[Rfam]
The record is a 123-nucleotide RNA sequence from Xenorhabdus bovienii, which matches "Phenylalanine leader peptide" in Rfam. Its family is annotated with cellular amino acid metabolic process in the Gene Ontology. The family's consensus secondary structure was predicted with CMfinder.

RNA sequence: AAUGAUGAAAUUAGCUUUUUUUCGUUUCUUUUUUUACUUUAGCGCCUGAAAUCGGGGGGCUUUGCGCGUAAGAAAAGAAACGAAAAACAGCGCUUGAGCCUCCAGUGUGGAGGCUUUUUUAUU
Numbered sequence: 001a002a003u004g005a006u007g008a009a010a011u012u013a014g015c016u017u018u019u020u021u022u023c024g025u026u027u028c029u030u031u032u033u034u035u036a037c038u039u040u041a042g043c044g045c046c047u048g049a050a051a052u053c054g055g056g057g058g059g060c061u062u063u064g065c066g067c068g069u070a071a072g073a074a075a076a077g078a079a080a081c082g083a084a085a086a087a088c089a090g091c092g093c094u095u096g097a098g099c100c101u102c103c104a105g106u107g108u109g110g111a112g113g114c115u116u117u118u119u120u121a122u123u
Base pairs, nucleotide, nucleotide: 014091015090016089019086020085021084022083023082024081025080026079027078028077029076030075031074032073034071035070036069037068046055047054057065096116097115098114099113100112101111102110103109104108